[Rfam]
RNA sequence: UUUGCAAGUUCAAGCCCAUGGCAGAAGUGCUCAUGGUGUGGCCUGUCAGAUUCCAAUGAAUCUGCAAGUUUUGCU
Numbered sequence: 001u002u003u004g005c006a007a008g009u010u011c012a013a014g015c016c017c018a019u020g021g022c023a024g025a026a027g028u029g030c031u032c033a034u035g036g037u038g039u040g041g042c043c044u045g046u047c048a049g050a051u052u053c054c055a056a057u058g059a060a061u062c063u064g065c066a067a068g069u070u071u072u073g074c075u
Stems, first nucleotide, its partner, number of pairs: 014043001016041002020075007027039003047064007
Rfam assigns this 75-nucleotide RNA from Alligator mississippiensis to the family "Mammalian CPEB3 ribozyme". Taxonomically the source falls in Alligator (Eukaryota, Bilateria, Teleostomi, Alligatorinae). The family's consensus secondary structure is taken from published work.